[Rfam]
RNA sequence: GAGGUUCCGGUUCACGCUGCCCGCGUCCGCGGGUGCGACCCGGCGACU
Number, nucleotide and partner (000 for none) at each position: 001g000002a000003g048004g047005u046006u000007c043008c042009g041010g040011u000012u000013c000014a000015c037016g036017c035018u000019g000020c033021c032022c031023g030024c000025g000026u000027c000028c000029g000030c023031g022032g021033g020034u000035g017036c016037g015038a000039c000040c010041c009042g008043g007044c000045g000046a005047c004048u003

Rfam assigns this 48-nucleotide RNA from Nocardioides euryhalodurans to the family "L31-Actinobacteria ribosomal protein leader". The source organism's lineage runs through Bacteria, Bacillati, Actinomycetota, Nocardioidaceae and Nocardioides. The family's consensus secondary structure is taken from published work. By type it is a cis-regulatory leader.